Rfam assigns this 86-nucleotide RNA from Triticum aestivum to the family "mir-395 microRNA precursor family".
Gene Ontology terms of the family: RISC complex and miRNA-mediated post-transcriptional gene silencing.
Rfam describes the family as follows. mir-395 was identified in both Arabidopsis thaliana and Oryza sativa computationally and was later experimentally verified. mir-395 is thought to target mRNAs coding for ATP sulphurylases. The mature sequence is excised from the 3' arm of the hairpin.
Lineage of the source: Eukaryota > Embryophyta > Petrosaviidae > Triticinae > Triticum.
RNA sequence: GUAUUACCUAGAGUUCCUUUCAAGCACUUCAUGAAGCAUCUUUACGAGGGCUUAUGUGAAGUGUUUGGAGGAACUACUGGUUUCAC
Numbered sequence: 001g002u003a004u005u006a007c008c009u010a011g012a013g014u015u016c017c018u019u020u021c022a023a024g025c026a027c028u029u030c031a032u033g034a035a036g037c038a039u040c041u042u043u044a045c046g047a048g049g050g051c052u053u054a055u056g057u058g059a060a061g062u063g064u065u066u067g068g069a070g071g072a073a074c075u076a077c078u079g080g081u082u083u084c085a086c
Stems, first nucleotide, its partner, number of pairs: 006081003012075009022066012035053002